Rfam assigns this 302-nucleotide RNA from Triticum aestivum to the family "Plant signal recognition particle RNA". Taxonomically the source falls in Triticum (Eukaryota, commelinids, Poaceae, Triticeae). Rfam classes the family as a non-coding RNA gene.
RNA sequence: UCCGGCGCGCGUAGACGUCGCGCACGUACGCGCCGCGGUAUUAAGGUGAUGUGGACGCUGUUGUAGUGCUGCGGGCCUGGUCUGGGUGUGCUGUUGCGGGCCCGCCCGUUCAAGUUGCGUAGUGGACCGCCUGGGGCCUAUGCAAAACCUGGGCCUCACGGUCCAUAAUAUACCAGACACAUCGUGAGGCUGGCUUCACAGAGUAGCGACAGCUGCCCGCUUCCGACGGUGGAAGGAUAACGAGCCGCUGCACUCCUAGGCCACUUGGGCCACGCAGUCUACUCUAGCGAACCAUCACUUUU
Numbered sequence: 001u002c003c004g005g006c007g008c009g010c011g012u013a014g015a016c017g018u019c020g021c022g023c024a025c026g027u028a029c030g031c032g033c034c035g036c037g038g039u040a041u042u043a044a045g046g047u048g049a050u051g052u053g054g055a056c057g058c059u060g061u062u063g064u065a066g067u068g069c070u071g072c073g074g075g076c077c078u079g080g081u082c083u084g085g086g087u088g089u090g091c092u093g094u095u096g097c098g099g100g101c102c103c104g105c106c107c108g109u110u111c112a113a114g115u116u117g118c119g120u121a122g123u124g125g126a127c128c129g130c131c132u133g134g135g136g137c138c139u140a141u142g143c144a145a146a147a148c149c150u151g152g153g154c155c156u157c158a159c160g161g162u163c164c165a166u167a168a169u170a171u172a173c174c175a176g177a178c179a180c181a182u183c184g185u186g187a188g189g190c191u192g193g194c195u196u197c198a199c200a201g202a203g204u205a206g207c208g209a210c211a212g213c214u215g216c217c218c219g220c221u222u223c224c225g226a227c228g229g230u231g232g233a234a235g236g237a238u239a240a241c242g243a244g245c246c247g248c249u250g251c252a253c254u255c256c257u258a259g260g261c262c263a264c265u266u267g268g269g270c271c272a273c274g275c276a277g278u279c280u281a282c283u284c285u286a287g288c289g290a291a292c293c294a295u296c297a298c299u300u301u302u
Base pairs, nucleotide, nucleotide: 002038003037004025005023006022007021008020009019030036031035043301044300045299046298047297048296049295050294051293053292056289057288058287059286060285063282064281065280066279069277070276071275072274073273075271077269078268079262080261081260082259083258084257085256086255088253089252090251092250093249099246100245101244103242104241106236107235109234110233111231112230114227115226116225117224119223121221122220123219124164125163126162127161128160129159132158133157134156135155136154137153138152139151140150142148174215175214176213182209183208184207185206190201191200192199